[Rfam]
RNA sequence: UCCUCACGAAUGCUGCGUUUCUUUGCUCACACACAGACAACUGCCUCGCGCAGCUCGUCAAAACUGGCAAAUGAGAAAUUCGGAGUAAUCUUCAACCUUGCACGCCAUCCGCUGCAAAGCGGCUCUGGCAGCUGCCCGUAAGGGCCUGCCAUGAAACUCAUGGUUGCACUCGGCAUCAGAAAUUUCAGCCCAGUCGGACAAUCUGAACUUAUUUGUGAGGAGCGUCUCGGCUGUGGCUAUGGGAGUCGGUGCGAAGAUUGUGUGUACGCCUUCGGGGUACGAUCACUUUAGUGCAAUACGCAGCGUAUCUGAGCCUCUGCCAUUCACACCUGUCGCGAGAUAUGGUGGGCGGAGGUCAUGGGUAUCAUUCGAUUCUGAUUACUCUUGUGAGGA
Numbered sequence: 001u002c003c004u005c006a007c008g009a010a011u012g013c014u015g016c017g018u019u020u021c022u023u024u025g026c027u028c029a030c031a032c033a034c035a036g037a038c039a040a041c042u043g044c045c046u047c048g049c050g051c052a053g054c055u056c057g058u059c060a061a062a063a064c065u066g067g068c069a070a071a072u073g074a075g076a077a078a079u080u081c082g083g084a085g086u087a088a089u090c091u092u093c094a095a096c097c098u099u100g101c102a103c104g105c106c107a108u109c110c111g112c113u114g115c116a117a118a119g120c121g122g123c124u125c126u127g128g129c130a131g132c133u134g135c136c137c138g139u140a141a142g143g144g145c146c147u148g149c150c151a152u153g154a155a156a157c158u159c160a161u162g163g164u165u166g167c168a169c170u171c172g173g174c175a176u177c178a179g180a181a182a183u184u185u186c187a188g189c190c191c192a193g194u195c196g197g198a199c200a201a202u203c204u205g206a207a208c209u210u211a212u213u214u215g216u217g218a219g220g221a222g223c224g225u226c227u228c229g230g231c232u233g234u235g236g237c238u239a240u241g242g243g244a245g246u247c248g249g250u251g252c253g254a255a256g257a258u259u260g261u262g263u264g265u266a267c268g269c270c271u272u273c274g275g276g277g278u279a280c281g282a283u284c285a286c287u288u289u290a291g292u293g294c295a296a297u298a299c300g301c302a303g304c305g306u307a308u309c310u311g312a313g314c315c316u317c318u319g320c321c322a323u324u325c326a327c328a329c330c331u332g333u334c335g336c337g338a339g340a341u342a343u344g345g346u347g348g349g350c351g352g353a354g355g356u357c358a359u360g361g362g363u364a365u366c367a368u369u370c371g372a373u374u375c376u377g378a379u380u381a382c383u384c385u386u387g388u389g390a391g392g393a
Stems, first nucleotide, its partner, number of pairs: 001393004007387003012304007022071004039055001041053004081377005090256004134145004148164005166252004171248002187238003305365007
The family of this 393-nucleotide RNA sequence from Septoria linicola is "Nuclear RNase P". The family's consensus secondary structure is taken from published work. A search with the family's covariance model found it, with a score of 42 bits. From the family's description: Ribonuclease P (RNase P) is a ubiquitous endoribonuclease, found in archaea, bacteria and eukarya as well as chloroplasts and mitochondria.